[Rfam]
RNA sequence: CCGGUUCCGGUUCACACCUUCGGCAGGCGAAGGUGACCCGGCGGCC
Numbered sequence: 001c002c003g004g005u006u007c008c009g010g011u012u013c014a015c016a017c018c019u020u021c022g023g024c025a026g027g028c029g030a031a032g033g034u035g036a037c038c039c040g041g042c043g044g045c046c
Stems, first nucleotide, its partner, number of pairs: 003046003007041004015035008
Notes
Shown here is a 46-nucleotide RNA sequence from Rhodococcus rhodnii, a member of the family "L31-Actinobacteria ribosomal protein leader".